[Rfam]
RNA sequence: UGUAUAGCUAUCAAUGAUGGAAAACUUUGGCGACUGACUACAGUGAUGUCAAACUAUCCUUUUUCGUCACUACCUCUGAGAUAGCUAUUAA
Numbered sequence: 001u002g003u004a005u006a007g008c009u010a011u012c013a014a015u016g017a018u019g020g021a022a023a024a025c026u027u028u029g030g031c032g033a034c035u036g037a038c039u040a041c042a043g044u045g046a047u048g049u050c051a052a053a054c055u056a057u058c059c060u061u062u063u064u065c066g067u068c069a070c071u072a073c074c075u076c077u078g079a080g081a082u083a084g085c086u087a088u089u090a091a
Stems, first nucleotide, its partner, number of pairs: 001091001004088009
RNA: Small nucleolar RNA SNORD70
Organism: Mytilus coruscus